Record summary
A member of the RNA family "BsrF" from Sediminibacillus albus, 108 nucleotides long. The family's consensus secondary structure was predicted with WAR. The literature on the family includes a 2008 paper in Gene by Saito et al., "Novel small RNA-encoding genes in the intergenic regions of Bacillus subtilis". It scores 84 bits against the family's covariance model. By type it is a small RNA.
RNA sequence: GCGAUGAGCUAAUUUGCGUAAGACGAUAAGAUUUGCCUUGAGCUAAACGUCGAAUGUGGUCGACGGUCUUUCGCCGCAAACGUAAAGCCUCCUGCCAGGACAGGAGGC
Numbered sequence: 001g002c003g004a005u006g007a008g009c010u011a012a013u014u015u016g017c018g019u020a021a022g023a024c025g026a027u028a029a030g031a032u033u034u035g036c037c038u039u040g041a042g043c044u045a046a047a048c049g050u051c052g053a054a055u056g057u058g059g060u061c062g063a064c065g066g067u068c069u070u071u072c073g074c075c076g077c078a079a080a081c082g083u084a085a086a087g088c089c090u091c092c093u094g095c096c097a098g099g100a101c102a103g104g105a106g107g108c
Base pairs, nucleotide, nucleotide: 014079015078016077017076018075024073025072026071029069030068031067032066035043036042048065049064051062052061053060087108088107089106090105091104092103093102094101